Notes: Shown here is a 168-nucleotide RNA from Dictyobacter alpinus, a member of the family "glmS glucosamine-6-phosphate activated ribozyme aptamer". About the family: This entry contains a glucosamine-6-phosphate activated ribozyme that is found in the mRNA for GlmS. GlmS is an enzyme that uses fructose-6-phosphate and glutamine to generate glucosamine-6-phosphate. It is annotated as a riboswitch. The match comes from Rfam's covariance-model search (56 bits). Lineage of the source: Bacteria > Bacillati > Chloroflexota > Ktedonobacterales > Dictyobacter.
RNA sequence: UCGUUUUGAGUAGCGCAUGGACCGGGCUAGCGGAGGUAGCCACGGUUGACGAGGAGGAGGCCGUUCGGAAUUGUCAGCGGGGAGCCUCCAGGGUUGAUCACGAUCCUGAGAAGAGAACACACAACGCCUGCCGGUAACGACCAGGACAAACCGUUCUCAGUGAUGUAG
Numbered sequence: 001u002c003g004u005u006u007u008g009a010g011u012a013g014c015g016c017a018u019g020g021a022c023c024g025g026g027c028u029a030g031c032g033g034a035g036g037u038a039g040c041c042a043c044g045g046u047u048g049a050c051g052a053g054g055a056g057g058a059g060g061c062c063g064u065u066c067g068g069a070a071u072u073g074u075c076a077g078c079g080g081g082g083a084g085c086c087u088c089c090a091g092g093g094u095u096g097a098u099c100a101c102g103a104u105c106c107u108g109a110g111a112a113g114a115g116a117a118c119a120c121a122c123a124a125c126g127c128c129u130g131c132c133g134g135u136a137a138c139g140a141c142c143a144g145g146a147c148a149a150a151c152c153g154u155u156c157u158c159a160g161u162g163a164u165g166u167a168g
Stems, first nucleotide, its partner, number of pairs: 020047005025041003029037001057088005066077001068075002089108006113158006127144001130141001132139002